[Rfam]
MIR1435 microRNA precursor family: a 199-nucleotide RNA sequence from Oryza glumipatula. Rfam links the family to the GO terms RISC complex and miRNA-mediated post-transcriptional gene silencing.
RNA sequence: UGACUUUGGUCAAAGUCAAACUGCUUCAAGUUUGACUAAGUUUGUAGAGAAAAUAAUAAUAUUUUCAACUCAAGACAAAUUUAUUAUGAAAACAUAUUCAAUUAUUGAUUUAAUGAAACUAAUUUGAUAUUAUAAAUAUAACUAUAUUUGUCUAUAAACUUAGUUAAACUAGAAGCAGUUUGACUUUGACCAAAGUCAA
Numbered sequence: 001u002g003a004c005u006u007u008g009g010u011c012a013a014a015g016u017c018a019a020a021c022u023g024c025u026u027c028a029a030g031u032u033u034g035a036c037u038a039a040g041u042u043u044g045u046a047g048a049g050a051a052a053a054u055a056a057u058a059a060u061a062u063u064u065u066c067a068a069c070u071c072a073a074g075a076c077a078a079a080u081u082u083a084u085u086a087u088g089a090a091a092a093c094a095u096a097u098u099c100a101a102u103u104a105u106u107g108a109u110u111u112a113a114u115g116a117a118a119c120u121a122a123u124u125u126g127a128u129a130u131u132a133u134a135a136a137u138a139u140a141a142c143u144a145u146a147u148u149u150g151u152c153u154a155u156a157a158a159c160u161u162a163g164u165u166a167a168a169c170u171a172g173a174a175g176c177a178g179u180u181u182g183a184c185u186u187u188g189a190c191c192a193a194a195g196u197c198a199a
Stems, first nucleotide, its partner, number of pairs: 005194005011188016031168005045154004050149003054144002059139006067131001070127005